[Rfam]
RNA sequence: CAAUGAAAUCCGUCCUUCGGCCGGGUGAUAUGCCCUGCGUGCAUGAAAUAUCCUGCGGAUGUGAUAUACGCC
Numbered sequence: 001c002a003a004u005g006a007a008a009u010c011c012g013u014c015c016u017u018c019g020g021c022c023g024g025g026u027g028a029u030a031u032g033c034c035c036u037g038c039g040u041g042c043a044u045g046a047a048a049u050a051u052c053c054u055g056c057g058g059a060u061g062u063g064a065u066a067u068a069c070g071c072c
Stems, first nucleotide, its partner, number of pairs: 008026005014020002030044004048062006

Shown here is a 72-nucleotide sequence from Fusibacter sp. A1, a member of the family "Gut-1 RNA". It is annotated as a small RNA. The family's consensus secondary structure is taken from published work. Rfam 15.1 lists 51 matches to the family in 22 species.